[Rfam]
RNA sequence: AGCACUUUUACCAAAAUGUGCUGACAGAUGUAAGUCCGACGUGUUUCACAUGCACGGCCUCAACCAAGGCUUUGGGAUUAC
Numbered sequence: 001a002g003c004a005c006u007u008u009u010a011c012c013a014a015a016a017u018g019u020g021c022u023g024a025c026a027g028a029u030g031u032a033a034g035u036c037c038g039a040c041g042u043g044u045u046u047c048a049c050a051u052g053c054a055c056g057g058c059c060u061c062a063a064c065c066a067a068g069g070c071u072u073u074g075g076g077a078u079u080a081c
Stems, first nucleotide, its partner, number of pairs: 001022005030081004036076002041055004056071004
The record is an 81-nucleotide RNA, which matches "S15-Methanomicrobia ribosomal protein leader" in Rfam.